[Rfam]
RNA sequence: GUGUAAUGAUGAAAUCCAUGCGUGUCAGCUGACUCUGUAAACCCCUGAUGUAUCUUGCUCUGGUUGGCGUUCUGCUAACUUGAGUCUGCAGACAACAGUGGCCCAGAGGCAUGAUCAUACAUUACUACUUCUGAAUAC
Numbered sequence: 001g002u003g004u005a006a007u008g009a010u011g012a013a014a015u016c017c018a019u020g021c022g023u024g025u026c027a028g029c030u031g032a033c034u035c036u037g038u039a040a041a042c043c044c045c046u047g048a049u050g051u052a053u054c055u056u057g058c059u060c061u062g063g064u065u066g067g068c069g070u071u072c073u074g075c076u077a078a079c080u081u082g083a084g085u086c087u088g089c090a091g092a093c094a095a096c097a098g099u100g101g102c103c104c105a106g107a108g109g110c111a112u113g114a115u116c117a118u119a120c121a122u123u124a125c126u127a128c129u130u131c132u133g134a135a136u137a138c
Stems, first nucleotide, its partner, number of pairs: 001138004043100001045098003049094003
Rfam assigns this 138-nucleotide RNA from Anabas testudineus to the family "Small nucleolar RNA SNORD10". Rfam 15.1 lists 433 matches to the family in 306 species. It scores 80 bits against the family's covariance model. Its family is annotated with nucleolus and RNA processing in the Gene Ontology. Rfam classes the family as a C/D-box small nucleolar RNA.